RNA sequence: UGCCGAAGUUUUCCUCGGCAAAUAACUGCAACAGGUUUCAUAAUUCGGCAGUUAACUGUCGAGGGGCAU
Numbered sequence: 001u002g003c004c005g006a007a008g009u010u011u012u013c014c015u016c017g018g019c020a021a022a023u024a025a026c027u028g029c030a031a032c033a034g035g036u037u038u039c040a041u042a043a044u045u046c047g048g049c050a051g052u053u054a055a056c057u058g059u060c061g062a063g064g065g066g067c068a069u
Base pairs, nucleotide, nucleotide: 012065013064015062016061017060018059019058020057023054024053025052026051027050028049029048
Dot-bracket structure: ...........((.((((((..(((((((..................)))))))..)))))).))....
Record summary:
MIR2629 microRNA precursor family: a 69-nucleotide sequence from Medicago truncatula. NCBI's taxonomy places the organism under Eukaryota, Fabaceae, Hologalegina, Trifolieae, Medicago.